[Rfam]
RNA sequence: UAUCUUUGCAGCUUGAUUCGAAGUAAUCACAUACAUAAAAAUUAUUAAAAAUUAAUGUUAGCAUG
Numbered sequence: 001u002a003u004c005u006u007u008g009c010a011g012c013u014u015g016a017u018u019c020g021a022a023g024u025a026a027u028c029a030c031a032u033a034c035a036u037a038a039a040a041a042u043u044a045u046u047a048a049a050a051a052u053u054a055a056u057g058u059u060a061g062c063a064u065g
Stems, first nucleotide, its partner, number of pairs: 014029005
The family of this 65-nucleotide RNA sequence from Urechidicola croceus is "S15-Flavobacteria ribosomal protein leader".
Pairs were carried over by alignment from the consensus structure, which is taken from published work.
For this family Rfam cites "Discovery of 20 novel ribosomal leader candidates in bacteria and archaea" (Eckert and Weinberg, BMC Microbiol, 2020).
It scores 56 bits against the family's covariance model.
Its Rfam clan is "Ribosomal Protein S15 Leader clan".
Rfam classes the family as a cis-regulatory leader.